This 75-nucleotide RNA from Jaculus jaculus belongs to the Rfam family "mir-3473 microRNA precursor family".

RNA sequence: ACUGCUGAGCCAUCUCUCCAGCCCCUAAAUAUCAUUUUAACAACUUAAUAAAGGCUGGAGAGAUGGCUCAGCAGU
Numbered sequence: 001a002c003u004g005c006u007g008a009g010c011c012a013u014c015u016c017u018c019c020a021g022c023c024c025c026u027a028a029a030u031a032u033c034a035u036u037u038u039a040a041c042a043a044c045u046u047a048a049u050a051a052a053g054g055c056u057g058g059a060g061a062g063a064u065g066g067c068u069c070a071g072c073a074g075u
Stems, first nucleotide, its partner, number of pairs: 002074022

The match comes from Rfam's covariance-model search (77 bits).